[Rfam]
RNA sequence: ACGUGCUCCGGGGUCGGUGAGAAUCCGAACCGGCGGUGACAGUCCGCGAGCCGAGGCCACAAGGCCUCGGUUGACCUGGUGGAACUCCAGGACCGACGGUGAUGUGCGGCCGAGAGCCGCACGAGUCCGGAUGAGAGGAAGCACGG
Numbered sequence: 001a002c003g004u005g006c007u008c009c010g011g012g013g014u015c016g017g018u019g020a021g022a023a024u025c026c027g028a029a030c031c032g033g034c035g036g037u038g039a040c041a042g043u044c045c046g047c048g049a050g051c052c053g054a055g056g057c058c059a060c061a062a063g064g065c066c067u068c069g070g071u072u073g074a075c076c077u078g079g080u081g082g083a084a085c086u087c088c089a090g091g092a093c094c095g096a097c098g099g100u101g102a103u104g105u106g107c108g109g110c111c112g113a114g115a116g117c118c119g120c121a122c123g124a125g126u127c128c129g130g131a132u133g134a135g136a137g138g139a140a141g142c143a144c145g146g
Base pairs, nucleotide, nucleotide: 003144004143005142006141007138008137015027016026017025031095032094033047034046035045036044042093043092050071051070052069075091076090077089078088079087097129098128099127